[Rfam]
RNA: SAM riboswitch aptamer (S box leader)
Organism: Alteribacter keqinensis
RNA sequence: CUCUUAUCCCGAGUUGGCGGAGGGACAGGCCCGAAGAAGCCCAGCAACCAUCACCACCUGACUACAUACUGGUGAACGGUGCUAACCUGCAAGACUUGUGUCUUGAAGAUAAGAG
Numbered sequence: 001c002u003c004u005u006a007u008c009c010c011g012a013g014u015u016g017g018c019g020g021a022g023g024g025a026c027a028g029g030c031c032c033g034a035a036g037a038a039g040c041c042c043a044g045c046a047a048c049c050a051u052c053a054c055c056a057c058c059u060g061a062c063u064a065c066a067u068a069c070u071g072g073u074g075a076a077c078g079g080u081g082c083u084a085a086c087c088u089g090c091a092a093g094a095c096u097u098g099u100g101u102c103u104u105g106a107a108g109a110u111a112a113g114a115g
Stems, first nucleotide, its partner, number of pairs: 001115008013042001016041003022032003026089004043083004048079002051075006090105006